This 138-nucleotide sequence from Caulobacter sp. K31 belongs to the Rfam family "Molybdenum/Tungsten riboswitch aptamer (Moco RNA motif)". Rfam's curators put it in the seed alignment. The base pairs follow the family's consensus structure, which is taken from published work.
[Rfam]
RNA sequence: CGAUGAAACUCGCUCCGAGCGUCCCGGCCUAACGCGCAUCCGCGCCAAGGCCGGGCCGCCGCGCCGGUACGCCGGCAAGGGUGACGGGGGAAACGCCGUCGCCUCCCUUGCUUGGAAAGGAGCCCGCAUGGGACGUCU
Numbered sequence: 001c002g003a004u005g006a007a008a009c010u011c012g013c014u015c016c017g018a019g020c021g022u023c024c025c026g027g028c029c030u031a032a033c034g035c036g037c038a039u040c041c042g043c044g045c046c047a048a049g050g051c052c053g054g055g056c057c058g059c060c061g062c063g064c065c066g067g068u069a070c071g072c073c074g075g076c077a078a079g080g081g082u083g084a085c086g087g088g089g090g091a092a093a094c095g096c097c098g099u100c101g102c103c104u105c106c107c108u109u110g111c112u113u114g115g116a117a118a119g120g121a122g123c124c125c126g127c128a129u130g131g132g133a134c135g136u137c138u
Base pairs, nucleotide, nucleotide: 004131006129012123013122014121015120016119019059020058021057023055024054025053026052027051028050029049034045035044036043063076064075065074066073067072079104080103081102082101083100084099085098086097087096089094105115106114

Annotation: Taxonomically the source falls in Caulobacter (Bacteria, Pseudomonadati, Pseudomonadota, Caulobacteraceae).